[Rfam]
RNA sequence: AUGCCUUAAACUUAUAAAUAAAGAAAAUAACAAUUUGGGGUGACACCCGCAUUGUCACUGCUAAGGUGAGAUGAAUUUUUGAGCGGGUAAAGGCUGUCCCUAAGGUGACCCACCUACUUUGUGGGAUACCUGAGAGUCACAAUCUGCUCA
Number, nucleotide and partner (000 for none) at each position: 001a000002u000003g000004c023005c000006u021007u020008a019009a000010a000011c000012u000013u000014a000015u000016a000017a000018a000019u008020a007021a006022a000023g004024a000025a000026a000027a000028u000029a000030a000031c000032a053033a052034u051035u000036u049037g048038g047039g046040g000041u000042g000043a000044c000045a000046c039047c038048c037049g036050c000051a034052u033053u032054g000055u069056c068057a067058c066059u000060g000061c000062u000063a000064a000065g000066g058067u057068g056069a055070g000071a000072u000073g000074a000075a000076u000077u000078u000079u000080u000081g000082a000083g000084c000085g149086g148087g147088u146089a000090a000091a145092g144093g143094c000095u141096g140097u139098c000099c000100c134101u133102a000103a131104g130105g129106u128107g127108a000109c125110c124111c123112a122113c121114c000115u000116a000117c000118u000119u000120u000121g113122u112123g111124g110125g109126a000127u107128a106129c105130c104131u103132g000133a101134g100135a000136g000137u000138c000139a097140c096141a095142a000143u093144c092145u091146g088147c087148u086149c085150a000
RNA: U12 minor spliceosomal RNA
Organism: Carlito syrichta